[Rfam]
RNA sequence: CUGCUGCUGUGUCUUAUGGCUUUUUAUUCCUAUGUGAUACUGCAACUCGACUCAUGUAGGGAUGGAAGCCACUAAACACACAGUAA
Number, nucleotide and partner (000 for none) at each position: 001c000002u085003g084004c083005u082006g081007c000008u000009g079010u078011g077012u076013c000014u074015u000016a000017u071018g070019g069020c068021u067022u066023u065024u000025u000026a063027u062028u061029c060030c059031u058032a057033u056034g055035u054036g053037a052038u000039a000040c000041u000042g000043c000044a000045a000046c000047u000048c000049g000050a000051c000052u037053c036054a035055u034056g033057u032058a031059g030060g029061g028062a027063u026064g000065g023066a022067a021068g020069c019070c018071a017072c000073u000074a014075a000076a012077c011078a010079c009080a000081c006082a005083g004084u003085a002086a000

A member of the RNA family "mir-135 microRNA precursor family" from Clupea harengus, 86 nucleotides long. The base pairs follow the family's consensus structure, which was predicted with PFOLD. A reference for the family is Lagos-Quintana et al. (2002), "Identification of tissue-specific microRNAs from mouse", Curr Biol. Lineage of the source: Eukaryota > Vertebrata > Clupei > Clupeidae > Clupea.